RNA: ZMP/ZTP riboswitch aptamer (pfl RNA motif)
RNA sequence: AAUACUGUGUGUGACUGGCGUAAACACGGAGAACCGUGAGGGAGCACACUGAAGCCGUACGCCUGGGCAAAGUAU
Numbered sequence: 001a002a003u004a005c006u007g008u009g010u011g012u013g014a015c016u017g018g019c020g021u022a023a024a025c026a027c028g029g030a031g032a033a034c035c036g037u038g039a040g041g042g043a044g045c046a047c048a049c050u051g052a053a054g055c056c057g058u059a060c061g062c063c064u065g066g067g068c069a070a071a072g073u074a075u
Stems, first nucleotide, its partner, number of pairs: 003053001005051001007049006015041002017063005026037004054068003